A member of the RNA family "c-di-GMP-I riboswitch aptamer" from Paenibacillus cremeus, 87 nucleotides long. The family is grouped with related families in Rfam's "c-di-GMP_I riboswitch clan". Rfam describes the family as follows. GEMM was predicted in a large-scale screen for bacterial structured RNA regulatory elements. The family's consensus secondary structure is taken from published work. The match comes from Rfam's covariance-model search (80 bits). Lineage of the source: Bacteria > Bacilli > Caryophanales > Paenibacillaceae > Paenibacillus.
RNA sequence: AUACGACAAAGGCAAAAUCGCUGAAAAGCGGUGACGCAAAGCUUAAGGGGCUUCAUCGGGUGACCGAUAUGCCAGCCAGCUACCGAA
Number, nucleotide and partner (000 for none) at each position: 001a000002u000003a000004c000005g000006a000007c000008a000009a000010a000011g000012g037013c036014a000015a000016a000017a032018u031019c030020g029021c028022u027023g000024a000025a000026a000027a022028g021029c020030g019031g018032u017033g000034a000035c000036g013037c012038a000039a000040a081041g080042c079043u078044u000045a000046a000047g077048g076049g073050g072051c071052u000053u000054c000055a000056u067057c066058g065059g064060g000061u000062g000063a000064c059065c058066g057067a056068u000069a000070u000071g051072c050073c049074a000075g000076c048077c047078a043079g042080c041081u040082a000083c000084c000085g000086a000087a000